[Rfam]
Rfam assigns this 103-nucleotide RNA from Heyndrickxia oleronia to the family "azaaromatic riboswitch aptamer (yjdF RNA)". Taxonomically the source falls in Heyndrickxia (Bacteria, Bacillati, Bacillota, Bacilli).

RNA sequence: UGUUCAGAAUGUAAAAACACAAUUCGGUUGGUAGUCCGAAUGCAUCACAUAUGAUGUCAGUAACCUUCCCCUCCUCGGGAUGUCCGUCAUUCUAAUAUUUAUU
Dot-bracket structure: ...(.((((((..........((((((........))))))((((((....)))))).........((((......)))).......)))))).)........